Shown here is a 207-nucleotide RNA from Leersia perrieri, a member of the family "MIR812 microRNA precursor family".

RNA sequence: AAUAUAAACAUUUGUUGACUUUCAGACGUCACGUUUGACCAUCCGUCUUAUUCAAAAAUUUUGUGAAUAUAUUAUUUAUUUUGUUAUGAUUUGUUUUAUCAUUAGGUAUACUUCAAGUAUGACUUAUUUGUUUUUAUAUUUCUAUAAAAUUUUUGAAUAAGACGGAUGAUCAAACAUGAUGUGCGGAAAUCGAUAAAUGUUUAUAUU
Numbered sequence: 001a002a003u004a005u006a007a008a009c010a011u012u013u014g015u016u017g018a019c020u021u022u023c024a025g026a027c028g029u030c031a032c033g034u035u036u037g038a039c040c041a042u043c044c045g046u047c048u049u050a051u052u053c054a055a056a057a058a059u060u061u062u063g064u065g066a067a068u069a070u071a072u073u074a075u076u077u078a079u080u081u082u083g084u085u086a087u088g089a090u091u092u093g094u095u096u097u098a099u100c101a102u103u104a105g106g107u108a109u110a111c112u113u114c115a116a117g118u119a120u121g122a123c124u125u126a127u128u129u130g131u132u133u134u135u136a137u138a139u140u141u142c143u144a145u146a147a148a149a150u151u152u153u154u155g156a157a158u159a160a161g162a163c164g165g166a167u168g169a170u171c172a173a174a175c176a177u178g179a180u181g182u183g184c185g186g187a188a189a190u191c192g193a194u195a196a197a198u199g200u201u202u203a204u205a206u207u
Stems, first nucleotide, its partner, number of pairs: 027181005034174005040168012
The family's consensus secondary structure was predicted with RNAalifold.